[Rfam]
RNA sequence: GGGUUGGUAGUUCAAUUGGUAGAGCAACGGUUUCCAAAACCGUAAGUUGAGGGUUCGAGUCCUUCCCAGCCCG
Numbered sequence: 001g002g003g004u005u006g007g008u009a010g011u012u013c014a015a016u017u018g019g020u021a022g023a024g025c026a027a028c029g030g031u032u033u034c035c036a037a038a039a040c041c042g043u044a045a046g047u048u049g050a051g052g053g054u055u056c057g058a059g060u061c062c063u064u065c066c067c068a069g070c071c072c073g
Stems, first nucleotide, its partner, number of pairs: 001072007010025004027043005049065005
The record is a 73-nucleotide RNA from Wohlfahrtiimonas chitiniclastica, which matches "tRNA" in Rfam. The base pairs follow the family's consensus structure, which is taken from published work. The source organism's lineage runs through Bacteria, Pseudomonadati, Cardiobacteriales, Ignatzschineriaceae and Wohlfahrtiimonas chitiniclastica.